The family of this 91-nucleotide RNA sequence from Medicago truncatula is "MIR5298 microRNA precursor family". NCBI's taxonomy places the organism under Eukaryota, Viridiplantae, Streptophyta, fabids, Medicago.
RNA sequence: UUAGCUUUUCUUUAUUUUCUUCUGGAAUUUUUCUGGAAUUCUUGUUGUUGAAGGUUUAUGGAGAUGAUAUGAAGAUGAGAAAGAGGAGAAU
Numbered sequence: 001u002u003a004g005c006u007u008u009u010c011u012u013u014a015u016u017u018u019c020u021u022c023u024g025g026a027a028u029u030u031u032u033c034u035g036g037a038a039u040u041c042u043u044g045u046u047g048u049u050g051a052a053g054g055u056u057u058a059u060g061g062a063g064a065u066g067a068u069a070u071g072a073a074g075a076u077g078a079g080a081a082a083g084a085g086g087a088g089a090a091u
Base pairs, nucleotide, nucleotide: 005085006084007083008082009081011079012078013077014076015075016074017073018072019071037056038055039054040053042051043050

About this RNA
Gene Ontology terms of the family: RISC complex and miRNA-mediated post-transcriptional gene silencing. A search with the family's covariance model found it, with a score of 78 bits.